[Rfam]
RNA: Antisense RNA which regulates isiA expression
Organism: uncultured Oscillatoriales cyanobacterium
RNA sequence: GAUACCCAUAGAUGACAAAGGGAUCGAGAGUAGGACUUGUUACUACGCGGACAUCAUGAAUUGCGGAGUCAUAUAGUCCUCCGAAAAACAUCGCUUUUGCCACCAGUAAUAAAGCACCUAAUCCUAGAAAAAUCAAGUGAUGUCCUAAGAUUAAACCAAGUUGUUUCGGGUCGUUCCA
Numbered sequence: 001g002a003u004a005c006c007c008a009u010a011g012a013u014g015a016c017a018a019a020g021g022g023a024u025c026g027a028g029a030g031u032a033g034g035a036c037u038u039g040u041u042a043c044u045a046c047g048c049g050g051a052c053a054u055c056a057u058g059a060a061u062u063g064c065g066g067a068g069u070c071a072u073a074u075a076g077u078c079c080u081c082c083g084a085a086a087a088a089c090a091u092c093g094c095u096u097u098u099g100c101c102a103c104c105a106g107u108a109a110u111a112a113a114g115c116a117c118c119u120a121a122u123c124c125u126a127g128a129a130a131a132a133u134c135a136a137g138u139g140a141u142g143u144c145c146u147a148a149g150a151u152u153a154a155a156c157c158a159a160g161u162u163g164u165u166u167c168g169g170g171u172c173g174u175u176c177c178a
Stems, first nucleotide, its partner, number of pairs: 136175006144169002147166002